Record summary:
The record is a 181-nucleotide RNA sequence from Clostridium niameyense, which matches "6S / SsrS RNA" in Rfam. About the family: E. coli 6S RNA was the first non coding RNA to be sequenced, but its function was unknown until recently. The literature on the family includes a 2000 paper in Cell by Wassarman and Storz, "6S RNA regulates E. coli RNA polymerase activity". Taxonomically the source falls in Clostridium (Bacteria, Bacillota, Clostridia, Eubacteriales).
[Rfam]
RNA sequence: AAACUCCUACUAUGUACGUUAAAGAGGUUUUAUUGAGUCAACAUGUUUUUGAAGGGAAUCUAACUCUUUUUGUGGAUUUGAUACUCAUAAUUAUUUGAGGACAUGAAACAAAAAGGCGAUACCCACCUGUGAGAGAAGCGGGUUCAAAAAUAAUCUCUUAUAGCGGCAAAGUGGGAGUUUG
Numbered sequence: 001a002a003a004c005u006c007c008u009a010c011u012a013u014g015u016a017c018g019u020u021a022a023a024g025a026g027g028u029u030u031u032a033u034u035g036a037g038u039c040a041a042c043a044u045g046u047u048u049u050u051g052a053a054g055g056g057a058a059u060c061u062a063a064c065u066c067u068u069u070u071u072g073u074g075g076a077u078u079u080g081a082u083a084c085u086c087a088u089a090a091u092u093a094u095u096u097g098a099g100g101a102c103a104u105g106a107a108a109c110a111a112a113a114a115g116g117c118g119a120u121a122c123c124c125a126c127c128u129g130u131g132a133g134a135g136a137a138g139c140g141g142g143u144u145c146a147a148a149a150a151u152a153a154u155c156u157c158u159u160a161u162a163g164c165g166g167c168a169a170a171g172u173g174g175g176a177g178u179u180u181g
Stems, first nucleotide, its partner, number of pairs: 002179010013168003017165003030150002034146006054124003058120003067114007079103002084099004